The family of this 69-nucleotide RNA from Peribacillus loiseleuriae is "Bacillaceae-1 RNA". Lineage of the source: Bacteria > Bacilli > Caryophanales > Bacillaceae > Peribacillus. The family's RNA type in Rfam is small RNA. The match comes from Rfam's covariance-model search (37 bits).
RNA sequence: CAUGAAUGACCAUCUGUUAAAAUCGCGCACGUCAUGACGAGCAACACAGAAGUCAGCACAUCCUGUGCA
Numbered sequence: 001c002a003u004g005a006a007u008g009a010c011c012a013u014c015u016g017u018u019a020a021a022a023u024c025g026c027g028c029a030c031g032u033c034a035u036g037a038c039g040a041g042c043a044a045c046a047c048a049g050a051a052g053u054c055a056g057c058a059c060a061u062c063c064u065g066u067g068c069a
Base pairs, nucleotide, nucleotide: 011052013050014049015048016047017046025042026041028039030036056068057067058066059065